[Rfam]
The family of this 87-nucleotide sequence from Gossypium davidsonii is "MIR7486 microRNA precursor family". NCBI's taxonomy places the organism under Eukaryota, Tracheophyta, Malvales, Malvaceae, Gossypium.
RNA sequence: CACGUCAGAGCGAGUUGCUGACGUGGCAGCAAAUCACGUCUUAGAGGGCGCGAUUUGUUGCCAUGUCAACAAGUCGUGCUGACGUGG
Numbered sequence: 001c002a003c004g005u006c007a008g009a010g011c012g013a014g015u016u017g018c019u020g021a022c023g024u025g026g027c028a029g030c031a032a033a034u035c036a037c038g039u040c041u042u043a044g045a046g047g048g049c050g051c052g053a054u055u056u057g058u059u060g061c062c063a064u065g066u067c068a069a070c071a072a073g074u075c076g077u078g079c080u081g082a083c084g085u086g087g
Base pairs, nucleotide, nucleotide: 001086002085003084004083005082006081007080008079010077011076012075013074015072016071017070019068020067021066023064024063025062026061027060028059029058030057031056032055033054034053035052037050038049040047041046